[Rfam]
RNA sequence: AGAUCACAAGUUUGAAGCCAAAGCAGAAGUGCUCACAGUGCAGUCUGUCAGAUUCCAAAGAAAUCUGCAAAUUCUGCU
Numbered sequence: 001a002g003a004u005c006a007c008a009a010g011u012u013u014g015a016a017g018c019c020a021a022a023g024c025a026g027a028a029g030u031g032c033u034c035a036c037a038g039u040g041c042a043g044u045c046u047g048u049c050a051g052a053u054u055c056c057a058a059a060g061a062a063a064u065c066u067g068c069a070a071a072u073u074c075u076g077c078u
Stems, first nucleotide, its partner, number of pairs: 014045001017044002022078007029041003049067006